RNA sequence: GGGCGCUUAGCUCAGUUGGUAGAGCGCCUCCCUUACAAGGAGGAUGUCGGCGGUUCGACCCCGUCAGCGCCCA
Dot-bracket structure: (((((((..((((........)))).(((((.......))))).....(((((.......)))))))))))).